[Rfam]
RNA sequence: CCUCAGGGACGGCCCUGUCCCCGCACCACCCCGCCUCAGGGACGGCCCUG
Numbered sequence: 001c002c003u004c005a006g007g008g009a010c011g012g013c014c015c016u017g018u019c020c021c022c023g024c025a026c027c028a029c030c031c032c033g034c035c036u037c038a039g040g041g042a043c044g045g046c047c048c049u050g
Stems, first nucleotide, its partner, number of pairs: 004017005037050005
RNA: Guanidine-II riboswitch aptamer (mini-ykkC)